Rfam assigns this 93-nucleotide sequence from Asparagus officinalis to the family "Small nucleolar RNA snoR27". By type it is a C/D-box small nucleolar RNA.
RNA sequence: UUUGGAUUACUGAUGUGAUACAAAUGCUGCGUUAUCUUUCUGCAAUAGCCUUGAACUGGCUCUGGAGAGACUAUUAUAUUACUGAGAUCCAUA
Dot-bracket structure: (.(((((...............................................................................))))).)
Numbered sequence: 001u002u003u004g005g006a007u008u009a010c011u012g013a014u015g016u017g018a019u020a021c022a023a024a025u026g027c028u029g030c031g032u033u034a035u036c037u038u039u040c041u042g043c044a045a046u047a048g049c050c051u052u053g054a055a056c057u058g059g060c061u062c063u064g065g066a067g068a069g070a071c072u073a074u075u076a077u078a079u080u081a082c083u084g085a086g087a088u089c090c091a092u093a
Stems, first nucleotide, its partner, number of pairs: 001093001003091005

Its family is annotated with nucleolus and RNA processing in the Gene Ontology. The match comes from Rfam's covariance-model search (48 bits). Rfam 15.1 lists 649 matches to the family in 212 species. The base pairs follow the family's consensus structure, which was predicted with WAR. The family is grouped with related families in Rfam's "snR68 clan".